[Rfam]
RNA sequence: CAAUGAGCGCCAUCACGGUCCGGGUAGCUGCCAGGGGGCCCGGUAGCAGGCUGGCGGCUUCACCGGGAAACGGGUGGGGUCGAAGCCCAGCGUCAAAAGCCCUGCAAGGGGGAGCGAAGAUGCGGUCCGCAGCAUGA
Numbered sequence: 001c002a003a004u005g006a007g008c009g010c011c012a013u014c015a016c017g018g019u020c021c022g023g024g025u026a027g028c029u030g031c032c033a034g035g036g037g038g039c040c041c042g043g044u045a046g047c048a049g050g051c052u053g054g055c056g057g058c059u060u061c062a063c064c065g066g067g068a069a070a071c072g073g074g075u076g077g078g079g080u081c082g083a084a085g086c087c088c089a090g091c092g093u094c095a096a097a098a099g100c101c102c103u104g105c106a107a108g109g110g111g112g113a114g115c116g117a118a119g120a121u122g123c124g125g126u127c128c129g130c131a132g133c134a135u136g137a
Base pairs, nucleotide, nucleotide: 020043021042022041023040024039050091051090052089053088054087055082056081057080058079059078060077064073066071100112101111102110103109114130115129116128